Shown here is a 102-nucleotide RNA from Syntrophobotulus glycolicus, a member of the family "SAM riboswitch aptamer (S box leader)". Its Rfam clan is "SAM clan". The organism belongs to Syntrophobotulus glycolicus, within Bacteria. Pairs were carried over by alignment from the consensus structure, which is taken from published work.

[Rfam]
RNA sequence: AUCUUAUCAAGAGUGGCGGAGGGACUGGCCCUGUGAUGUCCGGCAACCGGCUUUAAGAGUACGGUGCUAAAUCCUGGAGGAUUAUGAUCCUAGAGAUGAGAU
Numbered sequence: 001a002u003c004u005u006a007u008c009a010a011g012a013g014u015g016g017c018g019g020a021g022g023g024a025c026u027g028g029c030c031c032u033g034u035g036a037u038g039u040c041c042g043g044c045a046a047c048c049g050g051c052u053u054u055a056a057g058a059g060u061a062c063g064g065u066g067c068u069a070a071a072u073c074c075u076g077g078a079g080g081a082u083u084a085u086g087a088u089c090c091u092a093g094a095g096a097u098g099a100g101a102u
Stems, first nucleotide, its partner, number of pairs: 001102008013041001015040003021031003025076001027074002042068004047064002050060004072094001078091005